[Rfam]
RNA sequence: UGGAGAUGAUGAUUGAUUAUCUGAAAUGCUGAUGAAACUAUUGCCUAAGUCCUCUAGAUAGUCAAGUGCUGAUCCGG
Numbered sequence: 001u002g003g004a005g006a007u008g009a010u011g012a013u014u015g016a017u018u019a020u021c022u023g024a025a026a027u028g029c030u031g032a033u034g035a036a037a038c039u040a041u042u043g044c045c046u047a048a049g050u051c052c053u054c055u056a057g058a059u060a061g062u063c064a065a066g067u068g069c070u071g072a073u074c075c076g077g
Stems, first nucleotide, its partner, number of pairs: 001076004
RNA: Small nucleolar RNA SNORD20
Organism: Chloroceryle aenea